[Rfam]
RNA sequence: GACAGAGUAGGUAAAGAGCGUUAAGUGUUAAGGGAUGGGAAGUUGCCCUUAAACGAAGGAUUAAAUUCUGCGAUUCUUUACCGCGUCCGCUGGA
Numbered sequence: 001g002a003c004a005g006a007g008u009a010g011g012u013a014a015a016g017a018g019c020g021u022u023a024a025g026u027g028u029u030a031a032g033g034g035a036u037g038g039g040a041a042g043u044u045g046c047c048c049u050u051a052a053a054c055g056a057a058g059g060a061u062u063a064a065a066u067u068c069u070g071c072g073a074u075u076c077u078u079u080a081c082c083g084c085g086u087c088c089g090c091u092g093g094a
Base pairs, nucleotide, nucleotide: 003092004091005090010082011081012080013079014078015077016076017075018074019072020071021070025054026053028052029051030050031049032048033047034046038088039087040086042084058069059068060067
A member of the RNA family "THF (Tetrahydrofolate) riboswitch aptamer" from Tissierella sp. P1, 94 nucleotides long.
From the family's description: Tetrahydrofolate (THF) riboswitch was first reported for Ames et al. as an RNA motif in 5' untranslated (5'-UTR)regions of folate transport and biosynthesis genes in Firmicutes genomes.
The family's consensus secondary structure is taken from published work.
On this family, see Ames et al., Chem Biol 2010: "A eubacterial riboswitch class that senses the coenzyme tetrahydrofolate".